[Rfam]
A member of the RNA family "Small Cajal body specific RNA 6" from Mastacembelus armatus, 274 nucleotides long. The base pairs follow the family's consensus structure, which is taken from published work. Its family is annotated with nucleolus and RNA processing in the Gene Ontology. Taxonomically the source falls in Mastacembelus (Eukaryota, Euteleosteomorpha, Neoteleostei, Mastacembelidae). About the family: U88 is small Cajal body specific RNA (scaRNA). scaRNAs are a novel class of small nuclear RNAs which localise to the Cajal bodies. U88 is found associated with both fibrillarin and Gar1p and co-localises with coilin in Cajal bodies.
RNA sequence: GGUCAGUGAUGUCAUGUAAAAGGUCUGAAUCUCAGCUCCCCCCCUCAGCCACCAUUUUGGCUCCCAUCAGCCCCUGCUCUCUGCUCCCAUUAUGCUCCAGUGCUGCAAUGAUGGUCCCAGGAGCUGCUGACAGACAGGAAGUGACAUCACUGUUGGUCUGUACAGAGAUCCUACAGGCUGAGUGUGAUACUUGACACCCAACAGAACCAAUCAUCAUGGAGCGUCGGGCUGGGGGGUGGGUCCUGAGCACUGAUCUCAACCUUCAACUGAGACC
Numbered sequence: 001g002g003u004c005a006g007u008g009a010u011g012u013c014a015u016g017u018a019a020a021a022g023g024u025c026u027g028a029a030u031c032u033c034a035g036c037u038c039c040c041c042c043c044c045u046c047a048g049c050c051a052c053c054a055u056u057u058u059g060g061c062u063c064c065c066a067u068c069a070g071c072c073c074c075u076g077c078u079c080u081c082u083g084c085u086c087c088c089a090u091u092a093u094g095c096u097c098c099a100g101u102g103c104u105g106c107a108a109u110g111a112u113g114g115u116c117c118c119a120g121g122a123g124c125u126g127c128u129g130a131c132a133g134a135c136a137g138g139a140a141g142u143g144a145c146a147u148c149a150c151u152g153u154u155g156g157u158c159u160g161u162a163c164a165g166a167g168a169u170c171c172u173a174c175a176g177g178c179u180g181a182g183u184g185u186g187a188u189a190c191u192u193g194a195c196a197c198c199c200a201a202c203a204g205a206a207c208c209a210a211u212c213a214u215c216a217u218g219g220a221g222c223g224u225c226g227g228g229c230u231g232g233g234g235g236g237u238g239g240g241u242c243c244u245g246a247g248c249a250c251u252g253a254u255c256u257c258a259a260c261c262u263u264c265a266a267c268u269g270a271g272a273c274c
Stems, first nucleotide, its partner, number of pairs: 001274004034256002037253002041236008061221004065129002068126004087114007095105001138199001141197003145193001153181010